[Rfam]
RNA sequence: UGGGUCGGCAAGACGGUCGCGUCAUCUGCGGUUCCGCAAGGAAGCCCGCGGAUGCCGAGGAACGUCCGGGCUCCACAGGGCAGGGCGGUGGGUAACACCCACCCGGAGCAAUCCGCGAGACAGUGCAACAGAGAGUAAACCGCCCGGGGUCCGCCCCGGGUAAGGGUGAAACGGUGGUGUAAGAGACCACCAGCGAUUCGGGUGACCGAUCGGCUAGGUAAACCUCGCCCGGAGCAAGGUCAGACAGGGAACGCUUGAGGCUGCCCGCCGAGUUCCCGGGUAGACCGCUGGAGGGCUGCGGCAACGUAGUCCCGAGAUAGAUGGCCGUCACCCGCUCCCAGCCGCAAGGCUGGGAACGGGGACAGAACCCGGCGUACCAGCCGGCCCAUUCG
Numbered sequence: 001u002g003g004g005u006c007g008g009c010a011a012g013a014c015g016g017u018c019g020c021g022u023c024a025u026c027u028g029c030g031g032u033u034c035c036g037c038a039a040g041g042a043a044g045c046c047c048g049c050g051g052a053u054g055c056c057g058a059g060g061a062a063c064g065u066c067c068g069g070g071c072u073c074c075a076c077a078g079g080g081c082a083g084g085g086c087g088g089u090g091g092g093u094a095a096c097a098c099c100c101a102c103c104c105g106g107a108g109c110a111a112u113c114c115g116c117g118a119g120a121c122a123g124u125g126c127a128a129c130a131g132a133g134a135g136u137a138a139a140c141c142g143c144c145c146g147g148g149g150u151c152c153g154c155c156c157c158g159g160g161u162a163a164g165g166g167u168g169a170a171a172c173g174g175u176g177g178u179g180u181a182a183g184a185g186a187c188c189a190c191c192a193g194c195g196a197u198u199c200g201g202g203u204g205a206c207c208g209a210u211c212g213g214c215u216a217g218g219u220a221a222a223c224c225u226c227g228c229c230c231g232g233a234g235c236a237a238g239g240u241c242a243g244a245c246a247g248g249g250a251a252c253g254c255u256u257g258a259g260g261c262u263g264c265c266c267g268c269c270g271a272g273u274u275c276c277c278g279g280g281u282a283g284a285c286c287g288c289u290g291g292a293g294g295g296c297u298g299c300g301g302c303a304a305c306g307u308a309g310u311c312c313c314g315a316g317a318u319a320g321a322u323g324g325c326c327g328u329c330a331c332c333c334g335c336u337c338c339c340a341g342c343c344g345c346a347a348g349g350c351u352g353g354g355a356a357c358g359g360g361g362a363c364a365g366a367a368c369c370c371g372g373c374g375u376a377c378c379a380g381c382c383g384g385c386c387c388a389u390u391c392g
Stems, first nucleotide, its partner, number of pairs: 001388009012329007020057002023054009062375003066372005071234004078266004083230005088102005103117001104115004118225002123223002125219002140165002142161008173191006193214001194212003198209004238286004247277006259269003293312008

The record is a 392-nucleotide sequence from Marisediminicola antarctica, which matches "Bacterial RNase P class A" in Rfam. The family's RNA type in Rfam is ribozyme. NCBI's taxonomy places the organism under Bacteria, Actinomycetota, Actinomycetes, Microbacteriaceae, Marisediminicola. It scores 274 bits against the family's covariance model.